RNA sequence: AGCUUUGCAUAGUGGCAGUAUCAUAGCCAAUGAGGUUUAUCUGAGACGCAAUUACCAGUAAAUGAAAAUUUUUCCCAAUACCCCGCCGUGAUGACUUGCAAUACAGUCUCUCAUUGGCAGUUUUUUGAGUGUCUCUAGGGAGA
Numbered sequence: 001a002g003c004u005u006u007g008c009a010u011a012g013u014g015g016c017a018g019u020a021u022c023a024u025a026g027c028c029a030a031u032g033a034g035g036u037u038u039a040u041c042u043g044a045g046a047c048g049c050a051a052u053u054a055c056c057a058g059u060a061a062a063u064g065a066a067a068a069u070u071u072u073u074c075c076c077a078a079u080a081c082c083c084c085g086c087c088g089u090g091a092u093g094a095c096u097u098g099c100a101a102u103a104c105a106g107u108c109u110c111u112c113a114u115u116g117g118c119a120g121u122u123u124u125u126u127g128a129g130u131g132u133c134u135c136u137a138g139g140g141a142g143a
Stems, first nucleotide, its partner, number of pairs: 020052002024048001026047001028045001034042002085118003088114004093109001096106002132143004
Overview:
The family of this 143-nucleotide RNA from Saimiri boliviensis is "U4 spliceosomal RNA". About the family: U4 small nuclear RNA (U4 snRNA) is a component of the major U2-dependent spliceosome. By type it is a spliceosomal small nuclear RNA. Rfam 15.1 lists 32,178 matches to the family in 2,547 species.